[Rfam]
Pseudomon-Rho RNA: a 101-nucleotide sequence from Pseudomonas panipatensis. It scores 81 bits against the family's covariance model. Rfam classes the family as a cis-regulatory element.
RNA sequence: GUCGGCCGCACAACGUGGUUUACGUUGUUCCCUGCAAGCCGUCGCCGACGCAGUUCCUAUUCGUAUUUCCAAGCGAUCCUGUCGUCACUCUGCGGCACGGC
Numbered sequence: 001g002u003c004g005g006c007c008g009c010a011c012a013a014c015g016u017g018g019u020u021u022a023c024g025u026u027g028u029u030c031c032c033u034g035c036a037a038g039c040c041g042u043c044g045c046c047g048a049c050g051c052a053g054u055u056c057c058u059a060u061u062c063g064u065a066u067u068u069c070c071a072a073g074c075g076a077u078c079c080u081g082u083c084g085u086c087a088c089u090c091u092g093c094g095g096c097a098c099g100g101c
Stems, first nucleotide, its partner, number of pairs: 010028006038101004044096004073085005